[Rfam]
RNA sequence: GCCUUCUCUCCAAAAGCACCCUGCUGGAACUGCAGGAGCCGGACCUCACUGGUUUAGCUCAUGUGGCCAUGUAAGCACGGGUACACCAGGGAAGGAGAACAAAGGCACAGGGUUGAAGAUGAGGCAUUGGGGGGACCUCUUUCUUAAUGUCCAGUGUCUUCUGCCUCAAGAUCCUGUGUCACAUGA
Number, nucleotide and partner (000 for none) at each position: 001g000002c000003c000004u000005u000006c000007u000008c000009u000010c000011c000012a000013a000014a000015a000016g000017c000018a000019c081020c080021c000022u077023g076024c075025u074026g000027g000028a000029a070030c000031u000032g067033c000034a000035g000036g060037a000038g058039c057040c000041g055042g054043a053044c052045c051046u000047c000048a000049c000050u000051g045052g044053u043054u042055u041056a000057g039058c038059u000060c036061a000062u000063g000064u000065g000066g000067c032068c000069a000070u029071g000072u000073a000074a025075g024076c023077a022078c000079g000080g020081g019082u000083a000084c000085a000086c000087c000088a000089g000090g000091g000092a000093a000094g000095g000096a000097g000098a000099a000100c000101a000102a000103a000104g180105g179106c178107a177108c176109a175110g174111g173112g172113u000114u000115g000116a000117a000118g000119a000120u000121g000122a000123g000124g000125c000126a000127u000128u000129g157130g155131g000132g000133g152134g151135a150136c000137c000138u000139c000140u000141u000142u000143c000144u000145u000146a000147a000148u000149g000150u135151c134152c133153a000154g000155u130156g000157u129158c000159u000160u000161c000162u000163g000164c000165c000166u000167c000168a000169a000170g000171a000172u112173c111174c110175u109176g108177u107178g106179u105180c104181a000182c000183a000184u000185g000186a000
RNA: Small nucleolar RNA SNORA81